Record summary:
The family of this 83-nucleotide RNA from Arabidopsis thaliana is "MIR5643 microRNA precursor family".
RNA sequence: GUAUAGCCGAAGUUCGUAUGAGUCUUUGUCUUUAUAUCUUCUAACAAGGAUACAAUACUUAGGCUUUUAAAAUCCGGUUGCGG
Numbered sequence: 001g002u003a004u005a006g007c008c009g010a011a012g013u014u015c016g017u018a019u020g021a022g023u024c025u026u027u028g029u030c031u032u033u034a035u036a037u038c039u040u041c042u043a044a045c046a047a048g049g050a051u052a053c054a055a056u057a058c059u060u061a062g063g064c065u066u067u068u069a070a071a072a073u074c075c076g077g078u079u080g081c082g083g
Stems, first nucleotide, its partner, number of pairs: 002082001004080006012073003020066006028058002032055002035052006

The family has 2 seed sequences and 34 matches in Rfam 15.1. NCBI's taxonomy places the organism under Eukaryota, Tracheophyta, Gunneridae, Brassicaceae, Arabidopsis. Its family is annotated with miRNA-mediated post-transcriptional gene silencing and RISC complex in the Gene Ontology.